[Rfam]
The record is a 70-nucleotide RNA sequence from Candidatus Regiella insecticola, which matches "MicA sRNA" in Rfam. Rfam classes the family as a small RNA. The literature on the family includes a 2001 paper in Curr Biol by Argaman et al., "Novel small RNA-encoding genes in the intergenic regions of Escherichia coli". The base pairs follow the family's consensus structure, which was predicted with WAR. Gene Ontology term of the family: mRNA binding.

RNA sequence: GCAAGACGCGCAUUUGUUAUCAUCCUUAGGUUAUACAGAUGUUUUUUUGGCCACAUAAUAGUGGCCUUUU
Numbered sequence: 001g002c003a004a005g006a007c008g009c010g011c012a013u014u015u016g017u018u019a020u021c022a023u024c025c026u027u028a029g030g031u032u033a034u035a036c037a038g039a040u041g042u043u044u045u046u047u048u049g050g051c052c053a054c055a056u057a058a059u060a061g062u063g064g065c066c067u068u069u070u
Stems, first nucleotide, its partner, number of pairs: 021041004027035002049066006